[Rfam]
RNA sequence: GAACAAGUGCAUGUGGUGGAUGCCUUGGCGAUCACAGGCGAUGAAGGACGCGGUAGCCUGCGAAAAGCGGUGGGGAGCUGGCAAACAAGCUUUGAUCCACCGAUAUCCGAAUGGGGAAACCCACUCCGUAUGGAGUAUCCAUGACUGAAUACAUAGGUCAUGUGAAGCGAACGCGGCGAACUGAAACAUCUAAGUAGCCGCAGGAAAAGAAAUCAACCGAGAUUCCCAAAGUAGUGGCGAGCGAAAUGGGACCAGCCUGCAUUCUUUAUCUGUACCGUCAGCCAAACGCUCUGGAAAGUGCGGCCAUAGUGGGUGAUAGCCCCGUAGGCGAAGACGGAAUGGAAGAACUAGGUAUGCGACAAGUAGGGCGGGACACGUGAAAUCCUGUCUGAAGAUGGGGGGACCAUCCUCCAAGGCUAAAUACUCGUGAUCGACCGAUAGUGAACCAGUACCGUGAGGGAAAGGCGAAAAGAACCCCGGGAGGGGAGUGAAAUAGAUCCUGAAACCGCAUGCAUACAAA
Numbered sequence: 001g002a003a004c005a006a007g008u009g010c011a012u013g014u015g016g017u018g019g020a021u022g023c024c025u026u027g028g029c030g031a032u033c034a035c036a037g038g039c040g041a042u043g044a045a046g047g048a049c050g051c052g053g054u055a056g057c058c059u060g061c062g063a064a065a066a067g068c069g070g071u072g073g074g075g076a077g078c079u080g081g082c083a084a085a086c087a088a089g090c091u092u093u094g095a096u097c098c099a100c101c102g103a104u105a106u107c108c109g110a111a112u113g114g115g116g117a118a119a120c121c122c123a124c125u126c127c128g129u130a131u132g133g134a135g136u137a138u139c140c141a142u143g144a145c146u147g148a149a150u151a152c153a154u155a156g157g158u159c160a161u162g163u164g165a166a167g168c169g170a171a172c173g174c175g176g177c178g179a180a181c182u183g184a185a186a187c188a189u190c191u192a193a194g195u196a197g198c199c200g201c202a203g204g205a206a207a208a209g210a211a212a213u214c215a216a217c218c219g220a221g222a223u224u225c226c227c228a229a230a231g232u233a234g235u236g237g238c239g240a241g242c243g244a245a246a247u248g249g250g251a252c253c254a255g256c257c258u259g260c261a262u263u264c265u266u267u268a269u270c271u272g273u274a275c276c277g278u279c280a281g282c283c284a285a286a287c288g289c290u291c292u293g294g295a296a297a298g299u300g301c302g303g304c305c306a307u308a309g310u311g312g313g314u315g316a317u318a319g320c321c322c323c324g325u326a327g328g329c330g331a332a333g334a335c336g337g338a339a340u341g342g343a344a345g346a347a348c349u350a351g352g353u354a355u356g357c358g359a360c361a362a363g364u365a366g367g368g369c370g371g372g373a374c375a376c377g378u379g380a381a382a383u384c385c386u387g388u389c390u391g392a393a394g395a396u397g398g399g400g401g402g403a404c405c406a407u408c409c410u411c412c413a414a415g416g417c418u419a420a421a422u423a424c425u426c427g428u429g430a431u432c433g434a435c436c437g438a439u440a441g442u443g444a445a446c447c448a449g450u451a452c453c454g455u456g457a458g459g460g461a462a463a464g465g466c467g468a469a470a471a472g473a474a475c476c477c478c479g480g481g482a483g484g485g486g487a488g489u490g491a492a493a494u495a496g497a498u499c500c501u502g503a504a505a506c507c508g509c510a511u512g513c514a515u516a517c518a519a520a
Base pairs, nucleotide, nucleotide: 007515008514009513010512011511012510013509014508015507016506022500023465024464027436028435029433030432031431032430033429034428035427036425037424038168039167046108047107048106049062050061051060068102069101070100071099072098073097074096077090078089079088113122114121115120123136124135125134126133127132138165139164140162141161142160143159144158145157146156172203173201174200175199176198177197183190184189213220214219223421224251225250226249227248228247234242235241254418255417256416257415262354264352265351266350267345269343270342271341272340273339275337276336277335278334279333281329282328283327287302288301289300291298305309311323312322313321366390367389368388369387370386371385372384373383397412398411399410400409401408452459453458475486476485477484478483
Record summary
The family of this 520-nucleotide part of an RNA from Paraburkholderia acidisoli is "Bacterial large subunit ribosomal RNA". The organism belongs to Paraburkholderia, within Bacteria. It scores 2796 bits against the family's covariance model. The base pairs follow the family's consensus structure, which is taken from published work.